The family of this 85-nucleotide RNA sequence from Tetracentron sinense is "Small nucleolar RNA R44/J54/Z268 family". The match comes from Rfam's covariance-model search (82 bits). The organism belongs to Tetracentron, within Eukaryota. It is annotated as a C/D-box small nucleolar RNA.
RNA sequence: UGUGCAAGUGAUGAUAAAAUAGACAGGGACAUCAGCACUCCUUUGGAGGAUGAUGACUUGGUCUUGGGAAUCUCUCUGAUGCAUA
Numbered sequence: 001u002g003u004g005c006a007a008g009u010g011a012u013g014a015u016a017a018a019a020u021a022g023a024c025a026g027g028g029a030c031a032u033c034a035g036c037a038c039u040c041c042u043u044u045g046g047a048g049g050a051u052g053a054u055g056a057c058u059u060g061g062u063c064u065u066g067g068g069a070a071u072c073u074c075u076c077u078g079a080u081g082c083a084u085a
Stems, first nucleotide, its partner, number of pairs: 002084005